The family of this 113-nucleotide sequence from Priestia koreensis is "epsC RNA".
The family's consensus secondary structure is taken from published work.
The match comes from Rfam's covariance-model search (108 bits).
The source organism's lineage runs through Bacteria, Bacillati, Bacilli, Bacillaceae and Priestia.
[Rfam]
RNA sequence: UGGUGAUGUCUCCUUACCGUUAUCAAUAGGGGGCACUCGGCCGUGCUGUGGGUUUAAUAGUACCUUAGACGCUUGUCGUCAGGAGCACGGUGUGAGGCUGGGUUGGAUGCCCA
Numbered sequence: 001u002g003g004u005g006a007u008g009u010c011u012c013c014u015u016a017c018c019g020u021u022a023u024c025a026a027u028a029g030g031g032g033g034c035a036c037u038c039g040g041c042c043g044u045g046c047u048g049u050g051g052g053u054u055u056a057a058u059a060g061u062a063c064c065u066u067a068g069a070c071g072c073u074u075g076u077c078g079u080c081a082g083g084a085g086c087a088c089g090g091u092g093u094g095a096g097g098c099u100g101g102g103u104u105g106g107a108u109g110c111c112c113a
Stems, first nucleotide, its partner, number of pairs: 001019004007035007036096004040091008050065004055060001068080004099113005